The family of this 82-nucleotide sequence from Allopusillimonas soli is "Proteobacterial sRNA sX8". Rfam classes the family as a small RNA. The match comes from Rfam's covariance-model search (80 bits). Pairs were carried over by alignment from the consensus structure, which was predicted with CMfinder.
[Rfam]
RNA sequence: CUUCGCUGACCAUCCCAGCGGAGAAAGUGAUUGGGAAACAACCACUUAAGGCACUAGGUCGAGCCUCGUUUCCCGCUCCAGA
Numbered sequence: 001c002u003u004c005g006c007u008g009a010c011c012a013u014c015c016c017a018g019c020g021g022a023g024a025a026a027g028u029g030a031u032u033g034g035g036a037a038a039c040a041a042c043c044a045c046u047u048a049a050g051g052c053a054c055u056a057g058g059u060c061g062a063g064c065c066u067c068g069u070u071u072c073c074c075g076c077u078c079c080a081g082a
Stems, first nucleotide, its partner, number of pairs: 001023008029078002032075008045063001050059001052057001